This 143-nucleotide RNA sequence from Flavobacterium aquatile belongs to the Rfam family "Flavo-1 RNA".

RNA sequence: CCCUAGCCCAGAUUGUAAUGGAAAUCCUUGCUUUGUGAAAACUAUUUUUUGCUGGUUUUACAGAACGACCAACGGAAGUUCCUGAAAAACCUUGCAAAAAAAGUUUUCACAAAGCAAGAUUGCAAUGGAAAGCUGGAAAUAGC
Numbered sequence: 001c002c003c004u005a006g007c008c009c010a011g012a013u014u015g016u017a018a019u020g021g022a023a024a025u026c027c028u029u030g031c032u033u034u035g036u037g038a039a040a041a042c043u044a045u046u047u048u049u050u051g052c053u054g055g056u057u058u059u060a061c062a063g064a065a066c067g068a069c070c071a072a073c074g075g076a077a078g079u080u081c082c083u084g085a086a087a088a089a090c091c092u093u094g095c096a097a098a099a100a101a102a103g104u105u106u107u108c109a110c111a112a113a114g115c116a117a118g119a120u121u122g123c124a125a126u127g128g129a130a131a132g133c134u135g136g137a138a139a140u141a142g143c
Base pairs, nucleotide, nucleotide: 009135010134011133013131014130018126019125023121024120025119026118029116030115031114032113033112034111035110036109037108038107039106040105041104042103043102
The family's RNA type in Rfam is small RNA.